The record is a 73-nucleotide sequence from Nephila pilipes, which matches "mir-87 microRNA precursor family" in Rfam. A search with the family's covariance model found it, with a score of 60 bits. Rfam links the family to the GO terms RISC complex and miRNA-mediated post-transcriptional gene silencing.
RNA sequence: CACCCUUCCACCUGAAACGUUGUCUCAACCUGUAUUUUAAUCCAGGUGAGCAAAAUUUCAGGUGUGGGGGCGA
Numbered sequence: 001c002a003c004c005c006u007u008c009c010a011c012c013u014g015a016a017a018c019g020u021u022g023u024c025u026c027a028a029c030c031u032g033u034a035u036u037u038u039a040a041u042c043c044a045g046g047u048g049a050g051c052a053a054a055a056u057u058u059c060a061g062g063u064g065u066g067g068g069g070g071c072g073a
Stems, first nucleotide, its partner, number of pairs: 003070005009064007017056001020053002024050004029046003